Shown here is a 431-nucleotide RNA from Oidiodendron maius, a member of the family "RNase MRP". A reference for the family is Schmitt et al. (1993), "Secondary structure of RNase MRP RNA as predicted by phylogenetic comparison", FASEB J. Taxonomically the source falls in Oidiodendron maius (Eukaryota, saccharomyceta, sordariomyceta, Oidiodendron). It scores 104 bits against the family's covariance model. By type it is a ribozyme. RNase MRP is an enzymatically active ribonucleoprotein with two distinct roles in eukaryotes. Gene Ontology terms of the family: rRNA processing, ribonuclease MRP activity and ribonuclease MRP complex.

RNA sequence: UCCUCGCUCAAAGAAUCGCAUUCGGAGCACACAAACAGAGAGAUCUUUAGGGAUGUCUCGGCCAGCCAUGGCUACUGAUGCUUUGGGAGAAAGUCCCCGGACAACCUUUUCUUUUAAAGGACUGCGGAAACGCGCCGCCAUAGAAGCACCUUGCGGCUUCUCCUCUACCAAUUGCCCACCUCCUCCUUCGCACUCAGUUGCGCCCGGGUCUUGUUGGGAGGACCAUAUGGAUGAUGAUAUGAGUCCGAACCUCUUGCGCGACCCACAUGGCAGAUUGGGAGUGUAGGUAGGUGAUGAGGCCUGUCCUUGGAUCGGUGGGCAUGUUUUGGUAGUUGGAGGCUUUUCGUCGAGAUCGAUAGUUAUGCGAUUGUCCUCUAUGCCACUUGCGUUGCAUGGAUGAUAACUCGAUGGGGCUUAUUCUUGAUGCGAGG
Numbered sequence: 001u002c003c004u005c006g007c008u009c010a011a012a013g014a015a016u017c018g019c020a021u022u023c024g025g026a027g028c029a030c031a032c033a034a035a036c037a038g039a040g041a042g043a044u045c046u047u048u049a050g051g052g053a054u055g056u057c058u059c060g061g062c063c064a065g066c067c068a069u070g071g072c073u074a075c076u077g078a079u080g081c082u083u084u085g086g087g088a089g090a091a092a093g094u095c096c097c098c099g100g101a102c103a104a105c106c107u108u109u110u111c112u113u114u115u116a117a118a119g120g121a122c123u124g125c126g127g128a129a130a131c132g133c134g135c136c137g138c139c140a141u142a143g144a145a146g147c148a149c150c151u152u153g154c155g156g157c158u159u160c161u162c163c164u165c166u167a168c169c170a171a172u173u174g175c176c177c178a179c180c181u182c183c184u185c186c187u188u189c190g191c192a193c194u195c196a197g198u199u200g201c202g203c204c205c206g207g208g209u210c211u212u213g214u215u216g217g218g219a220g221g222a223c224c225a226u227a228u229g230g231a232u233g234a235u236g237a238u239a240u241g242a243g244u245c246c247g248a249a250c251c252u253c254u255u256g257c258g259c260g261a262c263c264c265a266c267a268u269g270g271c272a273g274a275u276u277g278g279g280a281g282u283g284u285a286g287g288u289a290g291g292u293g294a295u296g297a298g299g300c301c302u303g304u305c306c307u308u309g310g311a312u313c314g315g316u317g318g319g320c321a322u323g324u325u326u327u328g329g330u331a332g333u334u335g336g337a338g339g340c341u342u343u344u345c346g347u348c349g350a351g352a353u354c355g356a357u358a359g360u361u362a363u364g365c366g367a368u369u370g371u372c373c374u375c376u377a378u379g380c381c382a383c384u385u386g387c388g389u390u391g392c393a394u395g396g397a398u399g400a401u402a403a404c405u406c407g408a409u410g411g412g413g414c415u416u417a418u419u420c421u422u423g424a425u426g427c428g429a430g431g
Base pairs, nucleotide, nucleotide: 002431003430004429005428006427007426008424009423010422011421014369015368016367017366018365019364022087023085024084025083026082027081028080040059041058042057043056044055046053091416092415093414095413096412097411098410123134124133125132126131249341252337253336254335256333257332261330262329263328272324274322275321306310371400372399374397375396376395377394378393379392380391